RNA sequence: GGGGGUUGGUCGGAUCCUGGGCUGUGUCCCCAGAGCCCUGUGCUCCUGGGCCUGUGCUGUUGGAUUCCCGCUUCUGGCUGCGCAGCCCCU
Numbered sequence: 001g002g003g004g005g006u007u008g009g010u011c012g013g014a015u016c017c018u019g020g021g022c023u024g025u026g027u028c029c030c031c032a033g034a035g036c037c038c039u040g041u042g043c044u045c046c047u048g049g050g051c052c053u054g055u056g057c058u059g060u061u062g063g064a065u066u067c068c069c070g071c072u073u074c075u076g077g078c079u080g081c082g083c084a085g086c087c088c089c090u
Stems, first nucleotide, its partner, number of pairs: 001090005009083002011080003016077002019074003023070002026067001027064002030062001031059003035055002040052001042051003
Shown here is a 90-nucleotide RNA from Nyctereutes procyonoides, a member of the family "mir-8799 microRNA precursor family". The base pairs follow the family's consensus structure, which was predicted with RNAalifold. Its family is annotated with miRNA-mediated post-transcriptional gene silencing and RISC complex in the Gene Ontology.